[Rfam]
RNA sequence: CUGCAUUCUCAGGGCGGGGUGAAAUUCCCCACCGGUGGUAAAUCUGAUAACACAGAAAGCCCACGAGCGCCUGCUGACGGAUAGUAUCCGGGCAGGGUCAAGCAGAUCUGGUGUAACUCCAGAGCCGACGGUGAUAGUCCGGAUGAAAGAGAAUAACA
Numbered sequence: 001c002u003g004c005a006u007u008c009u010c011a012g013g014g015c016g017g018g019g020u021g022a023a024a025u026u027c028c029c030c031a032c033c034g035g036u037g038g039u040a041a042a043u044c045u046g047a048u049a050a051c052a053c054a055g056a057a058a059g060c061c062c063a064c065g066a067g068c069g070c071c072u073g074c075u076g077a078c079g080g081a082u083a084g085u086a087u088c089c090g091g092g093c094a095g096g097g098u099c100a101a102g103c104a105g106a107u108c109u110g111g112u113g114u115a116a117c118u119c120c121a122g123a124g125c126c127g128a129c130g131g132u133g134a135u136a137g138u139c140c141g142g143a144u145g146a147a148a149g150a151g152a153a154u155a156a157c158a
Base pairs, nucleotide, nucleotide: 005154006153007152008151009150010149017029018028019027031138032137033127034126035064036063037062038061059125060124067103068102107123108122109121110120111119129141130140131139
RNA: FMN riboswitch aptamer (RFN element)